[Rfam]
RNA: Bacterial large subunit ribosomal RNA, nucleotides 9 to 566
RNA sequence: AGAGAAGGGCACAUGAAGGAUGCCUUGGCUCUCGGAGGCGACGAAGGACGUGAUAAGCUGCGAAAAGCUGCGGGUAGGAGCAAAUAUCCUGUGAUCCGCAGAUGUCCGAAUGGGGCAACCCGACACGGGCGACCGUGCCACCCUCCUUGACGGAGGGAGCUAACCCGGGGAACUGAAACAUCUCAGUACCCGGAGGAAAAGAAAGUAAACCAACGAUUGCGCAAGUAGUGGCGAGCGAACGCGCAAGAGCCCAAACCGGCGGUGUUUCGGCACCGACCGGGGUUGUAGGACCGUCAACAAAUGGAUAAGAUAAAGUUAGCCGAAUCCUCUGGAAAGAGGAGCCGCAGCGGGUGACAGCCCCGUAGGCGAAAACGGAUUCUUGACAGAGACGGCACCUGAGUAAGCCGGGACACGAGAAAUCCUGGCCGAAUCCGCGGGGACCAUCCCGUAAGGCUAAAUACUACCGAGAGACCGAUAGCGAACCAGUACCGUGAGGGAAAGGUGAAAAGAACCUCGAACAGAGGAGUGAAACAGCCCCUGAAAUCAUGUGCCUACAAG
Numbered sequence: 001a002g003a004g005a006a007g008g009g010c011a012c013a014u015g016a017a018g019g020a021u022g023c024c025u026u027g028g029c030u031c032u033c034g035g036a037g038g039c040g041a042c043g044a045a046g047g048a049c050g051u052g053a054u055a056a057g058c059u060g061c062g063a064a065a066a067g068c069u070g071c072g073g074g075u076a077g078g079a080g081c082a083a084a085u086a087u088c089c090u091g092u093g094a095u096c097c098g099c100a101g102a103u104g105u106c107c108g109a110a111u112g113g114g115g116c117a118a119c120c121c122g123a124c125a126c127g128g129g130c131g132a133c134c135g136u137g138c139c140a141c142c143c144u145c146c147u148u149g150a151c152g153g154a155g156g157g158a159g160c161u162a163a164c165c166c167g168g169g170g171a172a173c174u175g176a177a178a179c180a181u182c183u184c185a186g187u188a189c190c191c192g193g194a195g196g197a198a199a200a201g202a203a204a205g206u207a208a209a210c211c212a213a214c215g216a217u218u219g220c221g222c223a224a225g226u227a228g229u230g231g232c233g234a235g236c237g238a239a240c241g242c243g244c245a246a247g248a249g250c251c252c253a254a255a256c257c258g259g260c261g262g263u264g265u266u267u268c269g270g271c272a273c274c275g276a277c278c279g280g281g282g283u284u285g286u287a288g289g290a291c292c293g294u295c296a297a298c299a300a301a302u303g304g305a306u307a308a309g310a311u312a313a314a315g316u317u318a319g320c321c322g323a324a325u326c327c328u329c330u331g332g333a334a335a336g337a338g339g340a341g342c343c344g345c346a347g348c349g350g351g352u353g354a355c356a357g358c359c360c361c362g363u364a365g366g367c368g369a370a371a372a373c374g375g376a377u378u379c380u381u382g383a384c385a386g387a388g389a390c391g392g393c394a395c396c397u398g399a400g401u402a403a404g405c406c407g408g409g410a411c412a413c414g415a416g417a418a419a420u421c422c423u424g425g426c427c428g429a430a431u432c433c434g435c436g437g438g439g440a441c442c443a444u445c446c447c448g449u450a451a452g453g454c455u456a457a458a459u460a461c462u463a464c465c466g467a468g469a470g471a472c473c474g475a476u477a478g479c480g481a482a483c484c485a486g487u488a489c490c491g492u493g494a495g496g497g498a499a500a501g502g503u504g505a506a507a508a509g510a511a512c513c514u515c516g517a518a519c520a521g522a523g524g525a526g527u528g529a530a531a532c533a534g535c536c537c538c539u540g541a542a543a544u545c546a547u548g549u550g551c552c553u554a555c556a557a558g
Base pairs, nucleotide, nucleotide: 007553008552009551010550011549012548013547014546015545016544022538023502024501027473028472029470030469031468032467033466034465035464036462037461038160039159046107047106048105049062050061051060068101069100070099071098072097073096074095077089078088079087112121113120114119122139124137125136126135127134128133141157142156143155144154145153146152164195165193166192167191168190169189175182176181205214206213217458218245219244220243221242222241228236229235248455249454250453251452256280257279258278259277260275261274262273287397288396289395291392292391293390294389295388306382307381308380309379310378315373316372317371319367320366321365325340326339327338328337329336343347349361350360351359404426405425406424407423408422409421410420434449435448436447437446438445489496490495512524513523514522515521